[Rfam]
RNA sequence: UUCUCCUGGUGUUCACUGCCGGCCUGUAUGUCCUAUUGAGGUUUUCAUAAGGCACGCGGUGAAUGCCAAGAGCG
Numbered sequence: 001u002u003c004u005c006c007u008g009g010u011g012u013u014c015a016c017u018g019c020c021g022g023c024c025u026g027u028a029u030g031u032c033c034u035a036u037u038g039a040g041g042u043u044u045u046c047a048u049a050a051g052g053c054a055c056g057c058g059g060u061g062a063a064u065g066c067c068a069a070g071a072g073c074g
Stems, first nucleotide, its partner, number of pairs: 003072003009066008018057002023052003027049004
This 74-nucleotide RNA sequence from Culex quinquefasciatus belongs to the Rfam family "mir-124 microRNA precursor family". A reference for the family is Lai et al. (2003), "Computational identification of Drosophila microRNA genes", Genome Biol.